[Rfam]
Nucleotides: 082
Base pairs, nucleotide, nucleotide: 004079005078006077007076
Number, partner (000 for none) and nucleotide at each position: 001000u002000a003000u004079g005078g006077c007076a008000u009000a010000u011000g012000a013000u014000g015000u016000u017000u018000a019000a020000u021000c022000u023000u024000a025000u026000c027000c028000u029000a030000c031000a032000c033000a034000c035000u036000g037000a038000u039000u040000g041000u042000u043000u044000g045000u046000g047000u048000u049000g050000a051000u052000a053000a054000c055000u056000a057000u058000u059000c060000u061000c062000a063000a064000a065000u066000u067000a068000u069000u070000c071000u072000c073000u074000g075000a076007u077006g078005c079004c080000u081000a082000u
Record summary: A member of the RNA family "Small nucleolar RNA R16" from Daucus carota, 82 nucleotides long. The organism belongs to Daucus carota, within Eukaryota. For this family Rfam cites "Purified box C/D snoRNPs are able to reproduce site-specific 2'-O-methylation of target RNA in vitro" (Galardi et al., Mol Cell Biol, 2002).